[Rfam]
A member of the RNA family "mir-277 microRNA precursor family" from Caenorhabditis latens, 90 nucleotides long. NCBI's taxonomy places the organism under Eukaryota, Ecdysozoa, Rhabditomorpha, Peloderinae, Caenorhabditis. On this family, see Liu et al., BMC Genomics 2010: "MicroRNAs of Bombyx mori identified by Solexa sequencing". Its family is annotated with RISC complex and miRNA-mediated post-transcriptional gene silencing in the Gene Ontology. It scores 46 bits against the family's covariance model.
RNA sequence: UUGGGUUAGAGAUUCUUAGUAGAGUGCGUUUACAGUGUAGUGUUUACAGUGUUACAGUGUAAACGCACUCUACUAAGAAUCUCUAACCUA
Numbered sequence: 001u002u003g004g005g006u007u008a009g010a011g012a013u014u015c016u017u018a019g020u021a022g023a024g025u026g027c028g029u030u031u032a033c034a035g036u037g038u039a040g041u042g043u044u045u046a047c048a049g050u051g052u053u054a055c056a057g058u059g060u061a062a063a064c065g066c067a068c069u070c071u072a073c074u075a076a077g078a079a080u081c082u083c084u085a086a087c088c089u090a
Base pairs, nucleotide, nucleotide: 008084009083010082011081015077016076017075018074019073020072021071022070023069024068026066027065028064029063030062031061032060033059034058